[Rfam]
RNA sequence: CGGCUUUUCUCAGCUGCACUUAAUCACGUUCUUGUGUGUGGCUGGCGUGUUUCCAGAGCGAGAGGCCCUCCUAACGCGCGGCAGAUUGGCCCCUGUGGCCUCUCUGCUCCUAGGAGUGUGACAGCU
Dot-bracket structure: (..((((....((((((((................))))))))...........)))).).......(((((.(.(......(((..((((.....))))..)))...).))))))..........